The record is a 119-nucleotide RNA from Tripterygium wilfordii, which matches "Small nucleolar RNA Z278" in Rfam. Pairs were carried over by alignment from the consensus structure, which was predicted with PFOLD. The source organism's lineage runs through Eukaryota, Euphyllophyta, Pentapetalae, fabids and Tripterygium. It scores 46 bits against the family's covariance model. About the family: snoZ278 is a C/D box small nucleolar RNA. Its methylation guide targets have not been reported.
RNA sequence: GCCAAUGAUGAUCCAGUCCGCAUUGUUUGAGGUGUGGUGGAGCCAAGACCCUGAUUUUUCAGGGAGAACCUACUUGGUGGAAGCUAUAAUUCACUGAUGUUAAUGGAUUUAACUGAGGC
Numbered sequence: 001g002c003c004a005a006u007g008a009u010g011a012u013c014c015a016g017u018c019c020g021c022a023u024u025g026u027u028u029g030a031g032g033u034g035u036g037g038u039g040g041a042g043c044c045a046a047g048a049c050c051c052u053g054a055u056u057u058u059u060c061a062g063g064g065a066g067a068a069c070c071u072a073c074u075u076g077g078u079g080g081a082a083g084c085u086a087u088a089a090u091u092c093a094c095u096g097a098u099g100u101u102a103a104u105g106g107a108u109u110u111a112a113c114u115g116a117g118g119c
Stems, first nucleotide, its partner, number of pairs: 001119003049064005